SAM riboswitch aptamer (S box leader): a 141-nucleotide RNA from Nocardioides thalensis.

RNA sequence: UGCUCAUCCAGAGGGACUGAGGGAACGGCCCGUUGAAGUCCCGGCAACCGCCACGAGCCUCCUGCCGCGCAGAUGCGGCGGCAGUCGUGGAGACGGUGCCAAAUCCGGCCCGCACGACGGACGUGACGGGACAGAUGAGAA
Numbered sequence: 001u002g003c004u005c006a007u008c009c010a011g012a013g014g015g016a017c018u019g020a021g022g023g024a025a026c027g028g029c030c031c032g033u034u035g036a037a038g039u040c041c042c043g044g045c046a047a048c049c050g051c052c053a054c055g056a057g058c059c060u061c062c063u064g065c066c067g068c069g070c071a072g073a074u075g076c077g078g079c080g081g082c083a084g085u086c087g088u089g090g091a092g093a094c095g096g097u098g099c100c101a102a103a104u105c106c107g108g109c110c111c112g113c114a115c116g117a118c119g120g121a122c123g124u125g126a127c128g129g130g131a132c133a134g135a136u137g138a139g140a141a
Stems, first nucleotide, its partner, number of pairs: 001141001003139006013042005021031003026107003043100004048096002104133001109130004
A search with the family's covariance model found it, with a score of 72 bits.
The family is grouped with related families in Rfam's "SAM clan".